The family of this 278-nucleotide RNA sequence from Cryphonectria parasitica is "Fungal signal recognition particle RNA". On this family, see Wild et al., Curr Opin Struct Biol 2002: "Towards the structure of the mammalian signal recognition particle". It scores 134 bits against the family's covariance model. Rfam classes the family as a non-coding RNA gene. Clan: SRP clan. Lineage of the source: Eukaryota > Fungi > Pezizomycotina > Diaporthales > Cryphonectria parasitica. Pairs were carried over by alignment from the consensus structure, which is taken from published work.
RNA sequence: UAGCUGUAAUGGCUUAACCGGGAUGGAGACACACAAUAUUCUCAUCGGCGCUAUUCCAUUUCCAUCAGAACCCCACCGACUGUGCCCAGCGCGAGCGCGGCAGCGGCCACCCACUCGCUCGGGUAACCAGCGAUGCUGUGCUUGUGGCCUGAAGCAACGAAGACGAUUCUUGAGGGAGGUUUCACUCUGCAGAGGCGUCUUCACUGUUGCGCGGCGUGUUGGAUCACACGGUCGUGGGCUUGGGGUAGUGCAAUGAGAUGGAGCUGUCAACUCCUAUU
Numbered sequence: 001u002a003g004c005u006g007u008a009a010u011g012g013c014u015u016a017a018c019c020g021g022g023a024u025g026g027a028g029a030c031a032c033a034c035a036a037u038a039u040u041c042u043c044a045u046c047g048g049c050g051c052u053a054u055u056c057c058a059u060u061u062c063c064a065u066c067a068g069a070a071c072c073c074c075a076c077c078g079a080c081u082g083u084g085c086c087c088a089g090c091g092c093g094a095g096c097g098c099g100g101c102a103g104c105g106g107c108c109a110c111c112c113a114c115u116c117g118c119u120c121g122g123g124u125a126a127c128c129a130g131c132g133a134u135g136c137u138g139u140g141c142u143u144g145u146g147g148c149c150u151g152a153a154g155c156a157a158c159g160a161a162g163a164c165g166a167u168u169c170u171u172g173a174g175g176g177a178g179g180u181u182u183c184a185c186u187c188u189g190c191a192g193a194g195g196c197g198u199c200u201u202c203a204c205u206g207u208u209g210c211g212c213g214g215c216g217u218g219u220u221g222g223a224u225c226a227c228a229c230g231g232u233c234g235u236g237g238g239c240u241u242g243g244g245g246u247a248g249u250g251c252a253a254u255g256a257g258a259u260g261g262a263g264c265u266g267u268c269a270a271c272u273c274c275u276a277u278u
Base pairs, nucleotide, nucleotide: 002014003013004012020278021277025274026273027272028271033267034266035265037262039260042256043255044254045253048251049250050249051248052247053246054245055244056243073238074237076234078233079232080231081230082229083228084227086222087221088220089219090218091217092216093215095212096211097210098209099208100207101206102205103204105143106142108140109139110138112135113134115133116132117131118130119129121128122127150154159202160201161200162199163198164197168195169194170193171192176187177186178185